A member of the RNA family "Selenocysteine insertion sequence 1", 61 nucleotides long.

[Rfam]
RNA sequence: GCCAGAUGAUGAGGACCUGUGCGGAAACCCCCCGCGGGCUGCCCAUGUCUGAGCCCCUGGC
Numbered sequence: 001g002c003c004a005g006a007u008g009a010u011g012a013g014g015a016c017c018u019g020u021g022c023g024g025a026a027a028c029c030c031c032c033c034g035c036g037g038g039c040u041g042c043c044c045a046u047g048u049c050u051g052a053g054c055c056c057c058u059g060g061c
Stems, first nucleotide, its partner, number of pairs: 001061005014049003018045002021042003029038003
Rfam's curators write: The incorporation of selenocysteine into a protein sequence is directed by an in-frame UGA codon (usually a stop codon) within the coding region of the mRNA. Selenoprotein mRNAs contain a conserved secondary structure in the 3' UTR that is required for the distinction of UGA stop from UGA selenocysteine.